[Rfam]
RNA: Small nucleolar RNA SNORD21
Organism: Galbula dea
Nucleotides: 097
Base pairs, nucleotide, nucleotide: 001094002093003092004091
Number, partner (000 for none) and nucleotide at each position: 001094g002093c003092u004091a005000c006000a007000u008000g009000a010000u011000g012000a013000u014000g015000c016000u017000c018000c019000c020000a021000a022000u023000g024000a025000c026000u027000g028000a029000a030000c031000a032000c033000u034000c035000u036000g037000u038000a039000g040000u041000u042000a043000g044000u045000c046000c047000a048000u049000g050000g051000u052000g053000u054000g055000u056000g057000u058000a059000u060000g061000a062000u063000g064000u065000a066000c067000c068000g069000c070000a071000c072000u073000g074000u075000u076000u077000c078000a079000a080000g081000a082000c083000g084000g085000g086000a087000c088000u089000g090000a091004u092003g093002g094001c095000a096000g097000c